[Rfam]
RNA sequence: ACUUGCUGCGGACCAGGCGCAUCGACUCCGCAGCACCAGACACCACACCGUGCCACGGGAACAUCGUGGCAUUUCAGGGCGUU
Dot-bracket structure: ...(((((((((....(.....)...)))))))))..............((((((((.......))))))))...........
Numbered sequence: 001a002c003u004u005g006c007u008g009c010g011g012a013c014c015a016g017g018c019g020c021a022u023c024g025a026c027u028c029c030g031c032a033g034c035a036c037c038a039g040a041c042a043c044c045a046c047a048c049c050g051u052g053c054c055a056c057g058g059g060a061a062c063a064u065c066g067u068g069g070c071a072u073u074u075c076a077g078g079g080c081g082u083u
Stems, first nucleotide, its partner, number of pairs: 004035009017023001050072008
Record summary: The record is an 83-nucleotide RNA from Streptomyces sp. DSM 15324, which matches "nrdJ RNA" in Rfam. It is annotated as a small RNA. Lineage of the source: Bacteria > Actinomycetota > Kitasatosporales > Streptomycetaceae > Streptomyces.